[Rfam]
RNA sequence: GGUCACGAGUGCCAGCGCUAAACCCCGGUUUGCUGGCCGGCAACCCUCCAUUCGCGGUGGGGUGCCCCGGGUGACGACCCGGCCGGUCCGGAAUGGAUGCGGCAAGCGCGGAUC
Numbered sequence: 001g002g003u004c005a006c007g008a009g010u011g012c013c014a015g016c017g018c019u020a021a022a023c024c025c026c027g028g029u030u031u032g033c034u035g036g037c038c039g040g041c042a043a044c045c046c047u048c049c050a051u052u053c054g055c056g057g058u059g060g061g062g063u064g065c066c067c068c069g070g071g072u073g074a075c076g077a078c079c080c081g082g083c084c085g086g087u088c089c090g091g092a093a094u095g096g097a098u099g100c101g102g103c104a105a106g107c108g109c110g111g112a113u114c
Stems, first nucleotide, its partner, number of pairs: 001079004009038001011037006021030002039066003044062003048057002082103004086098005

Description: The family of this 114-nucleotide RNA from Paenarthrobacter aurescens is "SAM (S-adenosyl methionine) riboswitch aptamer". It is one of the family's seed sequences. Its Rfam clan is "SAM clan". Lineage of the source: Bacteria > Actinomycetota > Micrococcaceae > Paenarthrobacter > Paenarthrobacter aurescens. SAM-IV is a mRNA element that regulates gene expression via direct sensing of S-adenosylmethionine (SAM or AdoMet). SAM-IV riboswitches share conserved nucleotide positions with the previously described SAM-I riboswitches sequence analysis and molecular recognition experiments suggest that SAM-I and SAM-IV riboswitches share similar ligand binding sites, but have different scaffolds.